A member of the RNA family "Small nucleolar RNA SNORD91 family" from Leucopsar rothschildi, 91 nucleotides long. Rfam classes the family as a C/D-box small nucleolar RNA. NCBI's taxonomy places the organism under Eukaryota, Tetrapoda, Archosauria, Sturnidae, Leucopsar. The family has 24 seed sequences and 977 matches in Rfam 15.1. Its family is annotated with RNA processing and nucleolus in the Gene Ontology.
RNA sequence: UGAGGAAGCCUGUGAUGUCUUAGCCGUGGUGUCUGAACCUGGCUGAAGGAUUCUUGUGAAGAGUCUUUUUGGCUCUGAGGCUUCCAGAGCA
Numbered sequence: 001u002g003a004g005g006a007a008g009c010c011u012g013u014g015a016u017g018u019c020u021u022a023g024c025c026g027u028g029g030u031g032u033c034u035g036a037a038c039c040u041g042g043c044u045g046a047a048g049g050a051u052u053c054u055u056g057u058g059a060a061g062a063g064u065c066u067u068u069u070u071g072g073c074u075c076u077g078a079g080g081c082u083u084c085c086a087g088a089g090c091a
Stems, first nucleotide, its partner, number of pairs: 004085007